tRNA: a 73-nucleotide RNA from [Eubacterium] infirmum. It scores 57 bits against the family's covariance model. By type it is a transfer RNA. Taxonomically the source falls in [Eubacterium] infirmum (Bacteria, Bacillota, Clostridia, Anaerovoracaceae).
[Rfam]
RNA sequence: GUGGGUAUCGUCAAGUGGUUAAGACCCAGGGUUGUGGCUCCUGUAUGCGUGGGUUCGAAUCCCACUACCCACC
Numbered sequence: 001g002u003g004g005g006u007a008u009c010g011u012c013a014a015g016u017g018g019u020u021a022a023g024a025c026c027c028a029g030g031g032u033u034g035u036g037g038c039u040c041c042u043g044u045a046u047g048c049g050u051g052g053g054u055u056c057g058a059a060u061c062c063c064a065c066u067a068c069c070c071a072c073c
Base pairs, nucleotide, nucleotide: 001072002071003070004069005068006067007066010025011024012023027043028042029041030040031039049065050064051063052062053061